Rfam assigns this 79-nucleotide RNA from Rhododendron simsii to the family "Small nucleolar RNA R160". The organism belongs to Rhododendron, within Eukaryota. Pairs were carried over by alignment from the consensus structure. The family's RNA type in Rfam is C/D-box small nucleolar RNA. Rfam's curators write: snoR160 is a C/D box small nucleolar RNA, which acts as a methylation guide for 25S ribosomal RNA in plants. snoR160 has been alternatively named snoZ270 in rice. The literature on the family includes a 2003 paper in Nucleic Acids Res by Chen et al., "The high diversity of snoRNAs in plants: identification and comparative study of 120 snoRNA genes from Oryza sativa".
RNA sequence: AGCAAAAUGAUGAAGUUCUUUACUCCGAAGUUUGAUGUGGAGAACAUAUAUCAAUGGUCUUCAAAGUUCUCUGAUUGCU
Numbered sequence: 001a002g003c004a005a006a007a008u009g010a011u012g013a014a015g016u017u018c019u020u021u022a023c024u025c026c027g028a029a030g031u032u033u034g035a036u037g038u039g040g041a042g043a044a045c046a047u048a049u050a051u052c053a054a055u056g057g058u059c060u061u062c063a064a065a066g067u068u069c070u071c072u073g074a075u076u077g078c079u
Base pairs, nucleotide, nucleotide: 001079002078003077004076005075